[Rfam]
RNA sequence: AGGAAAAUUUGUUAGGUGAGGCUCCUAUAAAGAUAGAUGCUGCUACCCAGAAAAAUCGAGAGAUUCCAAUGGGUUAACAAUAAUUAUCGCCAAGGUAAUUUUUAACGUAGCUGACAAGAAAAGGUCAAAGCUUUAUAGUGCUAAAGCUCUACAAUUAAAUUGUGUU
Number, nucleotide and partner (000 for none) at each position: 001a000002g000003g000004a000005a000006a161007a160008u159009u158010u157011g152012u151013u093014a000015g148016g147017u146018g000019a000020g142021g141022c140023u000024c000025c138026u137027a136028u135029a134030a133031a132032g131033a000034u000035a000036g000037a000038u000039g111040c110041u109042g108043c107044u000045a074046c073047c072048c071049a070050g000051a000052a000053a000054a065055a064056u063057c062058g000059a000060g000061a000062g057063a056064u055065u054066c000067c000068a000069a000070u049071g048072g047073g046074u045075u000076a000077a000078c000079a000080a102081u000082a100083a099084u000085u000086a096087u095088c094089g000090c000091c000092a000093a013094g088095g087096u086097a000098a000099u083100u082101u000102u080103u000104a000105a000106c000107g043108u042109a041110g040111c039112u000113g126114a125115c124116a000117a000118g000119a000120a000121a000122a000123g000124g115125u114126c113127a000128a000129a000130g000131c032132u031133u030134u029135a028136u027137a026138g025139u000140g022141c021142u020143a000144a000145a000146g017147c016148u015149c000150u000151a012152c011153a000154a000155u000156u000157a010158a009159a008160u007161u006162g000163u000164g000165u000166u000
Rfam assigns this 166-nucleotide RNA from Clostridium paraputrificum to the family "M-box riboswitch aptamer (ykoK leader)". Taxonomically the source falls in Clostridium (Bacteria, Bacillati, Clostridia, Clostridiaceae). Rfam links the family to the GO terms response to magnesium ion and regulation of gene expression. The family has 159 seed sequences and 1,095 matches in Rfam 15.1. The base pairs follow the family's consensus structure.